DUF3800-VIII RNA: a 76-nucleotide RNA sequence. Rfam's curators write: Bacteroidetes, Cyanobacteria, Firmicutes, Planctomycetes (1 example), Proteobacteria, Tenericutes (1 example). The base pairs follow the family's consensus structure, which is taken from published work. It is one of the family's seed sequences. By type it is a small RNA.
RNA sequence: GCAGCCCUGCGAUGCGCGAACGCUCAAGUUCCACUUGGGAUGGCCCGGUGAACCCGGCUAGCGCACGCGGGGCUGU
Numbered sequence: 001g002c003a004g005c006c007c008u009g010c011g012a013u014g015c016g017c018g019a020a021c022g023c024u025c026a027a028g029u030u031c032c033a034c035u036u037g038g039g040a041u042g043g044c045c046c047g048g049u050g051a052a053c054c055c056g057g058c059u060a061g062c063g064c065a066c067g068c069g070g071g072g073c074u075g076u
Stems, first nucleotide, its partner, number of pairs: 001076011014064004023039007